A member of the RNA family "SAM riboswitch aptamer (S box leader)" from Deinococcus ruber, 128 nucleotides long. The base pairs follow the family's consensus structure, which is taken from published work. The SAM riboswitch is found upstream of a number of genes which code for proteins involved in methionine or cysteine biosynthesis in Gram-positive bacteria.

Nucleotides: 128
Stems, first nucleotide, its partner, number of pairs: 001128008013043005021032003026082004044074004049070002051066004083117002
Number, partner (000 for none) and nucleotide at each position: 001128c002127c003126u004125u005124u006123a007122u008121c009000c010000a011000g012000a013043g014042c015041g016040c017039c018000c019000g020000a021032g022031a023030g024000a025000c026082c027081u028080g029079g030023c031022u032021c033000a034000c035000a036000g037000a038000c039017g040016g041015c042014g043013c044074a045073g046072c047071a048000a049070c050069c051066g052065g053064c054063c055000u056000u057000c058000a059000u060000c061000a062000c063054g064053g065052c066051c067000a068000c069050g070049g071047u072046g073045c074044u075000u076000c077000c078000u079029c080028c081027a082026g083117c084116c085000c086000g087000a088000a089000g090000c091000g092000a093000c094000g095000g096000g097000u098000c099000a100000a101000c102000g103000a104000u105000g106000a107000c108000c109000g110000g111000a112000a113000c114000u115000c116084g117083g118000a119000a120000c121008g122007a123006u124005a125004a126003g127002g128001g